[Rfam]
A member of the RNA family "Bacterial RNase P class A" from Thiopseudomonas denitrificans, 356 nucleotides long. Lineage of the source: Bacteria > Pseudomonadota > Gammaproteobacteria > Pseudomonadales > Thiopseudomonas.
RNA sequence: AGAGCCGGCCGGACAGUCGCUGCUUUCUGGCUACGGCCGGAAAGGGGAGGAAAGUCCGGGCUCCGCAGGGCAAGACGCCAGGUAACACCUGGGAGGCGCAAGCCUACGGAAAGUGCCACAGAAAAUAACCGCCUAAGCGCGCAAGCGCCGGUAAGGGUGAAAAGGUGCGGUAAGAGCGCACCGCGCGGCUGGUAACAGUCCGUGGCCAGGCAAACCCCGUCGGGAGCAAGACCAAAUAGGAAUCCGUUGGCGUGGCCCGCGCUGGAUUCGGGUAGGUUGCUUGAGGUCGUCAGUGAUGGCGAUCCCAGAUGAAUGACUGUCCACGACAGAACCCGGCUUACAGGCUGGCUCUUGCC
Numbered sequence: 001a002g003a004g005c006c007g008g009c010c011g012g013a014c015a016g017u018c019g020c021u022g023c024u025u026u027c028u029g030g031c032u033a034c035g036g037c038c039g040g041a042a043a044g045g046g047g048a049g050g051a052a053a054g055u056c057c058g059g060g061c062u063c064c065g066c067a068g069g070g071c072a073a074g075a076c077g078c079c080a081g082g083u084a085a086c087a088c089c090u091g092g093g094a095g096g097c098g099c100a101a102g103c104c105u106a107c108g109g110a111a112a113g114u115g116c117c118a119c120a121g122a123a124a125a126u127a128a129c130c131g132c133c134u135a136a137g138c139g140c141g142c143a144a145g146c147g148c149c150g151g152u153a154a155g156g157g158u159g160a161a162a163a164g165g166u167g168c169g170g171u172a173a174g175a176g177c178g179c180a181c182c183g184c185g186c187g188g189c190u191g192g193u194a195a196c197a198g199u200c201c202g203u204g205g206c207c208a209g210g211c212a213a214a215c216c217c218c219g220u221c222g223g224g225a226g227c228a229a230g231a232c233c234a235a236a237u238a239g240g241a242a243u244c245c246g247u248u249g250g251c252g253u254g255g256c257c258c259g260c261g262c263u264g265g266a267u268u269c270g271g272g273u274a275g276g277u278u279g280c281u282u283g284a285g286g287u288c289g290u291c292a293g294u295g296a297u298g299g300c301g302a303u304c305c306c307a308g309a310u311g312a313a314u315g316a317c318u319g320u321c322c323a324c325g326a327c328a329g330a331a332c333c334c335g336g337c338u339u340a341c342a343g344g345c346u347g348g349c350u351c352u353u354g355c356c
Stems, first nucleotide, its partner, number of pairs: 001352010011341001012321007020047002023044008052339003056336005061226004068258004074221004078092005093107001094105004108217002113215002115211003129156002131152003137148004164182006183206001184204005189198003230278004240269006249263005285304008